[Rfam]
RNA sequence: AAGGUUUCGUACGCGACCGCCAUGGACUGGUUCAUCGCUGUGUGUUUCGCUUUU
Numbered sequence: 001a002a003g004g005u006u007u008c009g010u011a012c013g014c015g016a017c018c019g020c021c022a023u024g025g026a027c028u029g030g031u032u033c034a035u036c037g038c039u040g041u042g043u044g045u046u047u048c049g050c051u052u053u054u
Stems, first nucleotide, its partner, number of pairs: 001054003008049001011046001013045002016041002019038002022035005
RNA: Editing element of GABA-3 exon 9
Organism: Callorhinchus milii